[Rfam]
Shown here is a 50-nucleotide sequence from Drouetiella hepatica, a member of the family "Nitrogen stress-induced RNA 1".
The literature on the family includes a 2010 paper in J Mol Biol by Ionescu et al., "Heterocyst-specific transcription of NsiR1, a non-coding RNA encoded in a tandem array of direct repeats in cyanobacteria".
By type it is a small RNA.
RNA sequence: UGGUAGAUGCACCCUGAUAAAUCCCUGGCUUCUGGUCGGGGAUUUUUAUU
Number, nucleotide and partner (000 for none) at each position: 001u000002g013003g012004u011005a000006g000007a000008u000009g000010c000011a004012c003013c002014c000015u000016g000017a000018u000019a000020a000021a000022u042023c041024c040025c039026u038027g037028g036029c035030u034031u000032c000033u000034g030035g029036u028037c027038g026039g025040g024041g023042a022043u000044u000045u000046u000047u000048a000049u000050u000